[Rfam]
RNA sequence: AAGUGCUCCGGGGUCGGUGGGAAUCCGAACCGGCGGUGACAGUCCGCGAACCCUCGUCCUCCAUCCGAUUGCGGAUGCGGCGAGGGCCGAUCCGGUGGAAUUCCGGAACCGACGGUGAUGCGACGGAGGUUUCGUCGCUAGUCCGGAUGGGAGGCAGCACAG
Numbered sequence: 001a002a003g004u005g006c007u008c009c010g011g012g013g014u015c016g017g018u019g020g021g022a023a024u025c026c027g028a029a030c031c032g033g034c035g036g037u038g039a040c041a042g043u044c045c046g047c048g049a050a051c052c053c054u055c056g057u058c059c060u061c062c063a064u065c066c067g068a069u070u071g072c073g074g075a076u077g078c079g080g081c082g083a084g085g086g087c088c089g090a091u092c093c094g095g096u097g098g099a100a101u102u103c104c105g106g107a108a109c110c111g112a113c114g115g116u117g118a119u120g121c122g123a124c125g126g127a128g129g130u131u132u133c134g135u136c137g138c139u140a141g142u143c144c145g146g147a148u149g150g151g152a153g154g155c156a157g158c159a160c161a162g
Stems, first nucleotide, its partner, number of pairs: 003160005008153001015027003031111002033047004042109002051086008091107005113145003

Source information:
The record is a 162-nucleotide RNA sequence from Microbacterium lemovicicum, which matches "FMN riboswitch aptamer (RFN element)" in Rfam. Taxonomically the source falls in Microbacterium (Bacteria, Bacillati, Actinomycetota, Micrococcales). A search with the family's covariance model found it, with a score of 74 bits. Its family is annotated with FMN binding in the Gene Ontology.